RNA sequence: CAACAAGAUAGAGGCGCGGCAAUCAGGCUGUUCCGUCAUUCAAAAGCGUUGCAGAACGUGACGGAUAAUGGGCUUGCCGCCGAAGCGGAGCUUUUCUGUGGGAGCUUGCAGCUGGGUCUGUACGGGAUACGUGCAGAACUGUCACACUCGCUGUGGAGGGCUAUCGCUUUU
Numbered sequence: 001c002a003a004c005a006a007g008a009u010a011g012a013g014g015c016g017c018g019g020c021a022a023u024c025a026g027g028c029u030g031u032u033c034c035g036u037c038a039u040u041c042a043a044a045a046g047c048g049u050u051g052c053a054g055a056a057c058g059u060g061a062c063g064g065a066u067a068a069u070g071g072g073c074u075u076g077c078c079g080c081c082g083a084a085g086c087g088g089a090g091c092u093u094u095u096c097u098g099u100g101g102g103a104g105c106u107u108g109c110a111g112c113u114g115g116g117u118c119u120g121u122a123c124g125g126g127a128u129a130c131g132u133g134c135a136g137a138a139c140u141g142u143c144a145c146a147c148u149c150g151c152u153g154u155g156g157a158g159g160g161c162u163a164u165c166g167c168u169u170u171u
Stems, first nucleotide, its partner, number of pairs: 007165005016080007024072001032065008084113003088107006114140002117137008142156005
Rfam assigns this 171-nucleotide RNA sequence from Ruminococcus sp. CAG:382 to the family "Lysine riboswitch aptamer". NCBI's taxonomy places the organism under Bacteria, Bacillati, Clostridia, Oscillospiraceae, Ruminococcus. About the family: Riboswitches are metabolite binding domains within certain messenger RNAs that serve as precision sensors for their corresponding targets. Allosteric rearrangement of mRNA structure is mediated by ligand binding, and this results in modulation of gene expression. This family includes riboswitches that sense lysine in a number of genes involved in lysine metabolism, including lysC. Pairs were carried over by alignment from the consensus structure, which is taken from published work. Gene Ontology term of the family: lysine biosynthetic process.